RNA sequence: GGCCGGGCGUGCGAGGAAUACAAUACCUGCCCUGCAGGGAAUAACUCCGCCGCUUACAGUACGGUUUUGAGCACCCGGCCGCCCUUUU
Numbered sequence: 001g002g003c004c005g006g007g008c009g010u011g012c013g014a015g016g017a018a019u020a021c022a023a024u025a026c027c028u029g030c031c032c033u034g035c036a037g038g039g040a041a042u043a044a045c046u047c048c049g050c051c052g053c054u055u056a057c058a059g060u061a062c063g064g065u066u067u068u069g070a071g072c073a074c075c076c077g078g079c080c081g082c083c084c085u086u087u088u
Stems, first nucleotide, its partner, number of pairs: 001080007009072001013047003017042001026038005049065004